[Rfam]
RNA sequence: GAAAGGAGGCGAGGCAGUUGCGGCUCAGGCUUCGGUUAUGGGCUGAGGAAAGUCCGGGCUCCCAAAAGACCAGACUUGCUGGGUAACGCCCAGUGCGGGUGACCGUGAGGAGAGUGCCACAGAAACAUACCGCCGAUGGCCUGCUUGCAGGCACAGGUAAGGGUGCAAGGGUGCGGUAAGAGCGCACCAGCAACAUCGAGAGGUGUUGGCUCGGUAAACCCCGGUUGGGAGCAAGGUGGAGGGACAACGGUUGGUCUUUUACCUGUUCCGUUUAUGGACCGCUAGAGGUGGCUAGUAAUAGCCAUCCCAGAGAGAUAACUGCCCUCUGUCUUCGACAGAGAACAGAACCCGGCUUAUGUCCUGCUUUCCCUA
Numbered sequence: 001g002a003a004a005g006g007a008g009g010c011g012a013g014g015c016a017g018u019u020g021c022g023g024c025u026c027a028g029g030c031u032u033c034g035g036u037u038a039u040g041g042g043c044u045g046a047g048g049a050a051a052g053u054c055c056g057g058g059c060u061c062c063c064a065a066a067a068g069a070c071c072a073g074a075c076u077u078g079c080u081g082g083g084u085a086a087c088g089c090c091c092a093g094u095g096c097g098g099g100u101g102a103c104c105g106u107g108a109g110g111a112g113a114g115u116g117c118c119a120c121a122g123a124a125a126c127a128u129a130c131c132g133c134c135g136a137u138g139g140c141c142u143g144c145u146u147g148c149a150g151g152c153a154c155a156g157g158u159a160a161g162g163g164u165g166c167a168a169g170g171g172u173g174c175g176g177u178a179a180g181a182g183c184g185c186a187c188c189a190g191c192a193a194c195a196u197c198g199a200g201a202g203g204u205g206u207u208g209g210c211u212c213g214g215u216a217a218a219c220c221c222c223g224g225u226u227g228g229g230a231g232c233a234a235g236g237u238g239g240a241g242g243g244a245c246a247a248c249g250g251u252u253g254g255u256c257u258u259u260u261a262c263c264u265g266u267u268c269c270g271u272u273u274a275u276g277g278a279c280c281g282c283u284a285g286a287g288g289u290g291g292c293u294a295g296u297a298a299u300a301g302c303c304a305u306c307c308c309a310g311a312g313a314g315a316u317a318a319c320u321g322c323c324c325u326c327u328g329u330c331u332u333c334g335a336c337a338g339a340g341a342a343c344a345g346a347a348c349c350c351g352g353c354u355u356a357u358g359u360c361c362u363g364c365u366u367u368c369c370c371u372a
Stems, first nucleotide, its partner, number of pairs: 001368005007362003011357001013323007021045007029037001050355003054352005059231004068258002073226003077223002079093005094108001095106004109221002114219002116215003130162002132158003139152005170188006190210001191208007235280003238275001241269006249263003253259001287306008
RNA: Bacterial RNase P class A
Organism: Synechococcus elongatus